[Rfam]
RNA sequence: GAGAUAUGAUGAUUUUACAUUGGUCCGUGUUUCUGAAUUACCGUGACCGACACAAAUCUUACCAAUUUCUGAUCUC
Numbered sequence: 001g002a003g004a005u006a007u008g009a010u011g012a013u014u015u016u017a018c019a020u021u022g023g024u025c026c027g028u029g030u031u032u033c034u035g036a037a038u039u040a041c042c043g044u045g046a047c048c049g050a051c052a053c054a055a056a057u058c059u060u061a062c063c064a065a066u067u068u069c070u071g072a073u074c075u076c
Base pairs, nucleotide, nucleotide: 001076002075003074004073
This 76-nucleotide RNA sequence from Phaseolus vulgaris belongs to the Rfam family "Small nucleolar RNA SNORD18". The source organism's lineage runs through Eukaryota, Streptophyta, Euphyllophyta, eudicotyledons and Phaseolus. The base pairs follow the family's consensus structure, which was predicted with PFOLD. Rfam links the family to the GO terms RNA processing and nucleolus. By type it is a C/D-box small nucleolar RNA.